[Rfam]
RNA: Histone 3' UTR stem-loop
RNA sequence: CCAAAGGCUCUUUUAAGAGCCACCUCAGUCUGUCUAACUGAAGUGGG
Numbered sequence: 001c002c003a004a005a006g007g008c009u010c011u012u013u014u015a016a017g018a019g020c021c022a023c024c025u026c027a028g029u030c031u032g033u034c035u036a037a038c039u040g041a042a043g044u045g046g047g
Stems, first nucleotide, its partner, number of pairs: 006021006